[Rfam]
RNA: 7SK RNA
RNA sequence: GGAUGUGAGGACAAUCUGGCUGUGACAUCUGACACCCCAUGGAUCACAAGGGUUCAUUUGACUGAUCCGGGUAGCAGUGUCUCCUUUCUCCUUCAUCAUUCCAUGUGUGUCCCUCCUGAAGCUGUGUGCUCAGCUGAUGAGGACAACCCUCCUGAUAGAGAUGGUAUUGUUCAUUGGUCAAAGGUAUAGGGUAGCUAUGCUCCCCUGCUAGAAAGUCCAAACAAGCUCAGGGUCCAUUUGUAUGAGAAUGUAGGGUAGUCAAGCUUCCAAGACUGAAGACACAUGCAAGUGAGGAGCUGCACGCAGCAAUCUGCCACUGCCU
Numbered sequence: 001g002g003a004u005g006u007g008a009g010g011a012c013a014a015u016c017u018g019g020c021u022g023u024g025a026c027a028u029c030u031g032a033c034a035c036c037c038c039a040u041g042g043a044u045c046a047c048a049a050g051g052g053u054u055c056a057u058u059u060g061a062c063u064g065a066u067c068c069g070g071g072u073a074g075c076a077g078u079g080u081c082u083c084c085u086u087u088c089u090c091c092u093u094c095a096u097c098a099u100u101c102c103a104u105g106u107g108u109g110u111c112c113c114u115c116c117u118g119a120a121g122c123u124g125u126g127u128g129c130u131c132a133g134c135u136g137a138u139g140a141g142g143a144c145a146a147c148c149c150u151c152c153u154g155a156u157a158g159a160g161a162u163g164g165u166a167u168u169g170u171u172c173a174u175u176g177g178u179c180a181a182a183g184g185u186a187u188a189g190g191g192u193a194g195c196u197a198u199g200c201u202c203c204c205c206u207g208c209u210a211g212a213a214a215g216u217c218c219a220a221a222c223a224a225g226c227u228c229a230g231g232g233u234c235c236a237u238u239u240g241u242a243u244g245a246g247a248a249u250g251u252a253g254g255g256u257a258g259u260c261a262a263g264c265u266u267c268c269a270a271g272a273c274u275g276a277a278g279a280c281a282c283a284u285g286c287a288a289g290u291g292a293g294g295a296g297c298u299g300c301a302c303g304c305a306g307c308a309a310u311c312u313g314c315c316a317c318u319g320c321c322u
Stems, first nucleotide, its partner, number of pairs: 001102003005096006013087002018084002024081005030076002035074001037070002042067004110164002113160003116133004121129002135154002141152003194264003200258002203255006216245002221241005287322001289320001291317001293315002296310001298308003